Rfam assigns this 94-nucleotide sequence from Rhinopithecus roxellana to the family "Small nucleolar RNA SNORD116". By type it is a C/D-box small nucleolar RNA. The family has 48 seed sequences and 3,260 matches in Rfam 15.1. On this family, see Cavaille et al., Proc Natl Acad Sci U S A 2000: "Identification of brain-specific and imprinted small nucleolar RNA genes exhibiting an unusual genomic organization". The match comes from Rfam's covariance-model search (78 bits). Taxonomically the source falls in Rhinopithecus (Eukaryota, Opisthokonta, Vertebrata, Sarcopterygii).

[Rfam]
RNA sequence: AGAUCGAUGAUGAGUCCCCCAAAAAAACAUUCCUUGGAAAAGCUGAACAAAAUGAGUGAGAACUCAUACCGUCGUUCUCAUCGUCAACUGAUGU
Numbered sequence: 001a002g003a004u005c006g007a008u009g010a011u012g013a014g015u016c017c018c019c020c021a022a023a024a025a026a027a028c029a030u031u032c033c034u035u036g037g038a039a040a041a042g043c044u045g046a047a048c049a050a051a052a053u054g055a056g057u058g059a060g061a062a063c064u065c066a067u068a069c070c071g072u073c074g075u076u077c078u079c080a081u082c083g084u085c086a087a088c089u090g091a092u093g094u
Base pairs, nucleotide, nucleotide: 003094004093028058029057030056031055032054034050035049036048